Notes:
A member of the RNA family "c-di-GMP-I-GGC riboswitch aptamer" from Desulfovibrio ferrophilus, 75 nucleotides long. The family is grouped with related families in Rfam's "c-di-GMP_I riboswitch clan". For this family Rfam cites "Bioinformatic analysis of riboswitch structures uncovers variant classes with altered ligand specificity" (Weinberg et al., Proc Natl Acad Sci U S A, 2017). Taxonomically the source falls in Desulfovibrio (Bacteria, Pseudomonadati, Desulfovibrionia, Desulfovibrionales). It scores 66 bits against the family's covariance model. The family's consensus secondary structure is taken from published work.

Nucleotides: 075
Stems, first nucleotide, its partner, number of pairs: 001075001003072001011036002016031006034061001040067003044064003047059003
Number, partner (000 for none) and nucleotide at each position: 001075u002000c003072c004000a005000g006000a007000u008000a009000a010000g011036c012035c013000a014000a015000a016031c017030c018029c019028g020027u021026c022000g023000c024000a025000a026021g027020g028019c029018g030017g031016g032000g033000a034061c035012g036011g037000a038000a039000a040067g041066c042065c043000a044064c045063g046062g047059a048058u049057c050000u051000c052000c053000c054000u055000g056000a057049g058048a059047u060000g061034g062046c063045c064044g065042g066041g067040c068000c069000g070000c071000c072003g073000a074000a075001g